[Rfam]
RNA sequence: CCCGUCUCGACGGGACGAAAUGUGGACCGCCUCGCGGUCUGAAUCGACAG
Numbered sequence: 001c002c003c004g005u006c007u008c009g010a011c012g013g014g015a016c017g018a019a020a021u022g023u024g025g026a027c028c029g030c031c032u033c034g035c036g037g038u039c040u041g042a043a044u045c046g047a048c049a050g
Base pairs, nucleotide, nucleotide: 001014002013003012004011005010016046017045018044024040025039026038027037028036